[Rfam]
RNA sequence: AGACGAUAAAGGCAAACUUAUCGAAAGGUAAGGACGCAAAGCCAUGGGCCUAAUCCCGAAGGGAACGGUUGCCAGGCUGCCAAA
Numbered sequence: 001a002g003a004c005g006a007u008a009a010a011g012g013c014a015a016a017c018u019u020a021u022c023g024a025a026a027g028g029u030a031a032g033g034a035c036g037c038a039a040a041g042c043c044a045u046g047g048g049c050c051u052a053a054u055c056c057c058g059a060a061g062g063g064a065a066c067g068g069u070u071g072c073c074a075g076g077c078u079g080c081c082a083a084a
Base pairs, nucleotide, nucleotide: 012037013036017032018031019030020029021028022027040078041077042076043075045074046073047072048069049068050067055063056062057061
Rfam assigns this 84-nucleotide RNA from Desulforamulus ruminis to the family "c-di-GMP-I riboswitch aptamer". GEMM was predicted in a large-scale screen for bacterial structured RNA regulatory elements. Lineage of the source: Bacteria > Eubacteriales > Peptococcaceae > Desulforamulus > Desulforamulus ruminis.